The family of this 51-nucleotide RNA sequence from Oesophagostomum dentatum is "Norovirus cis-acting replication element (CRE)". The literature on the family includes a 2009 paper in BMC Res Notes by Victoria et al., "Phylogenetic prediction of cis-acting elements: a cre-like sequence in Norovirus genome?". The organism belongs to Oesophagostomum, within Eukaryota.
RNA sequence: AGCGACCACCCGUCUCAUCUCGGAAGAAGCACUGGUGAAACGGGAACUUCU
Numbered sequence: 001a002g003c004g005a006c007c008a009c010c011c012g013u014c015u016c017a018u019c020u021c022g023g024a025a026g027a028a029g030c031a032c033u034g035g036u037g038a039a040a041c042g043g044g045a046a047c048u049u050c051u
Stems, first nucleotide, its partner, number of pairs: 004050002009044004015038003021034003
Dot-bracket structure: ...((...((((..(((...(((........))).)))..))))....)).